[Rfam]
Rfam assigns this 112-nucleotide RNA from Plutella xylostella to the family "mir-8517 microRNA precursor family". Pairs were carried over by alignment from the consensus structure, which was predicted with RNAalifold. Gene Ontology terms of the family: miRNA-mediated post-transcriptional gene silencing and RISC complex. Lineage of the source: Eukaryota > Mandibulata > Glossata > Plutellidae > Plutella.
RNA sequence: AUACUGGACGCUUUCGCUAUUGAACUGUUCUGUCACUCUCUGACAGAGCUCAAUUUGUUCUUUGACAGAGAGGGACAAAACAGUUCAAUAGCUAAAGCUAAAUUCCAGUCGC
Number, nucleotide and partner (000 for none) at each position: 001a000002u000003a109004c108005u107006g106007g000008a000009c000010g000011c097012u096013u095014u094015c000016g092017c091018u090019a089020u088021u087022g086023a085024a084025c083026u082027g081028u080029u069030c068031u067032g066033u065034c064035a063036c000037u000038c000039u000040c000041u000042g000043a000044c000045a000046g000047a000048g000049c000050u000051c057052a056053a000054u000055u000056u052057g051058u000059u000060c000061u000062u000063u035064g034065a033066c032067a031068g030069a029070g000071a000072g000073g000074g000075a000076c000077a000078a000079a000080a028081c027082a026083g025084u024085u023086c022087a021088a020089u019090a018091g017092c016093u000094a014095a013096a012097g011098c000099u000100a000101a000102a000103u000104u000105c000106c006107a005108g004109u003110c000111g000112c000